[Rfam]
RNA sequence: GGUUUUAACCCAGAAACUAAAGGUACGCUGGAGUUUCGACCAUUCGAAAGAGUGUGUCGAUCAACUUUAACUUUUGGAACUGCUCUACUGGGGUUAUCCGGUGGAGCAAA
Numbered sequence: 001g002g003u004u005u006u007a008a009c010c011c012a013g014a015a016a017c018u019a020a021a022g023g024u025a026c027g028c029u030g031g032a033g034u035u036u037c038g039a040c041c042a043u044u045c046g047a048a049a050g051a052g053u054g055u056g057u058c059g060a061u062c063a064a065c066u067u068u069a070a071c072u073u074u075u076g077g078a079a080c081u082g083c084u085c086u087a088c089u090g091g092g093g094u095u096a097u098c099c100g101g102u103g104g105a106g107c108a109a110a
Base pairs, nucleotide, nucleotide: 007035008034009031010030013028016024017023037059038058039057040056041054042053043052044051045050084108086106088104089103090102092099093098

The family of this 110-nucleotide RNA sequence from Caenorhabditis japonica is "SL2 RNA". About the family: This family represents SL2 RNA. SL2 RNA is involved in trans splicing in lower eukaryotes. Trans-splicing is a form of RNA processing. The acquisition of a spliced leader from a SL RNA is a intra-molecular reaction which precisely joins exons derived from separately transcribed RNAs. Approximately 25% of C. elegans genes are organised into polycistronic transcription units and the presence of SL2 on an mRNA is an indication the the gene is in an operon. The family has 30 seed sequences and 598 matches in Rfam 15.1. Clan: SL clan.